[Rfam]
RNA sequence: UGGUGAUGAUAAAGCUAAGGCUUGUUUCUCAACAUUCGCAGUAGCCGCCCAAGAGCUCUCGCCCUGCCAGGCUUGAGAGCUAAUGCUGUUAAAUCCUUCCUUGGAUGUCUGAACCA
Numbered sequence: 001u002g003g004u005g006a007u008g009a010u011a012a013a014g015c016u017a018a019g020g021c022u023u024g025u026u027u028c029u030c031a032a033c034a035u036u037c038g039c040a041g042u043a044g045c046c047g048c049c050c051a052a053g054a055g056c057u058c059u060c061g062c063c064c065u066g067c068c069a070g071g072c073u074u075g076a077g078a079g080c081u082a083a084u085g086c087u088g089u090u091a092a093a094u095c096c097u098u099c100c101u102u103g104g105a106u107g108u109c110u111g112a113a114c115c116a
Stems, first nucleotide, its partner, number of pairs: 001116004055080006